Rfam assigns this 94-nucleotide sequence from Kibdelosporangium phytohabitans to the family "Glycine riboswitch aptamer".
Gene Ontology term of the family: glycine biosynthetic process.
Taxonomically the source falls in Kibdelosporangium (Bacteria, Bacillati, Actinomycetes, Pseudonocardiales).
Rfam describes the family as follows. This family represents the bacterial glycine riboswitch.
For this family Rfam cites "A glycine-dependent riboswitch that uses cooperative binding to control gene expression" (Mandal et al., Science, 2004).

[Rfam]
RNA sequence: GCGACUCUGGAAAGCAGGCGCUCGCCGCCUCACCGAAGGUGCAAGUCCCCGACCGGGGGCGAAGCUCUCAGGUACCGAUGACAGAGGGGGAGGC
Number, nucleotide and partner (000 for none) at each position: 001g000002c089003g000004a000005c086006u085007c084008u083009g082010g000011a000012a000013a000014g000015c000016a030017g029018g028019c027020g000021c000022u000023c000024g000025c000026c000027g019028c018029c017030u016031c000032a073033c072034c071035g069036a068037a000038g000039g067040u000041g065042c000043a000044a000045g060046u059047c058048c057049c056050c055051g000052a000053c000054c000055g050056g049057g048058g047059g046060c045061g000062a000063a000064g000065c041066u000067c039068u036069c035070a000071g034072g033073u032074a000075c000076c000077g000078a000079u000080g000081a000082c009083a008084g007085a006086g005087g000088g000089g002090g000091a000092g000093g000094c000